[Rfam]
RNA sequence: GAGAAGAUAGGCUAAAACUGUCGUAAGGCAGUGGCAGAAAGUCGCGGAUCCUGACACCCAUUAUCAGGAAAGUAGUCGAACUACCGAU
Numbered sequence: 001g002a003g004a005a006g007a008u009a010g011g012c013u014a015a016a017a018c019u020g021u022c023g024u025a026a027g028g029c030a031g032u033g034g035c036a037g038a039a040a041g042u043c044g045c046g047g048a049u050c051c052u053g054a055c056a057c058c059c060a061u062u063a064u065c066a067g068g069a070a071a072g073u074a075g076u077c078g079a080a081c082u083a084c085c086g087a088u
Stems, first nucleotide, its partner, number of pairs: 012037002017032006040082003045078003048073002051067004
c-di-GMP-I riboswitch aptamer: an 88-nucleotide RNA from Methyloglobulus morosus. About the family: GEMM was predicted in a large-scale screen for bacterial structured RNA regulatory elements. The match comes from Rfam's covariance-model search (40 bits).